[Rfam]
RNA sequence: UCCACACUUAUGUGUGUAGGACCUCAAAUGAUCGCCAUUAAAUUUGGCACAGAUCUCUAUAAAAGUUAUUACAUGGGUGUGGGACUUGACUUUUCUAGAGAUCUGUGCCAAAUUUAAUGGUGAUUCUUUAAGGUCCUACACACAUGGGUGUGGG
Numbered sequence: 001u002c003c004a005c006a007c008u009u010a011u012g013u014g015u016g017u018a019g020g021a022c023c024u025c026a027a028a029u030g031a032u033c034g035c036c037a038u039u040a041a042a043u044u045u046g047g048c049a050c051a052g053a054u055c056u057c058u059a060u061a062a063a064a065g066u067u068a069u070u071a072c073a074u075g076g077g078u079g080u081g082g083g084a085c086u087u088g089a090c091u092u093u094u095c096u097a098g099a100g101a102u103c104u105g106u107g108c109c110a111a112a113u114u115u116a117a118u119g120g121u122g123a124u125u126c127u128u129u130a131a132g133g134u135c136c137u138a139c140a141c142a143c144a145u146g147g148g149u150g151u152g153g154g
Stems, first nucleotide, its partner, number of pairs: 002153012015140010026129003030125003034121026061094008069082005

Rfam assigns this 154-nucleotide RNA from Amborella trichopoda to the family "MIR8565 microRNA precursor family". The organism belongs to Amborella, within Eukaryota. Gene Ontology terms of the family: RISC complex and miRNA-mediated post-transcriptional gene silencing. The family's consensus secondary structure was predicted with RNAalifold.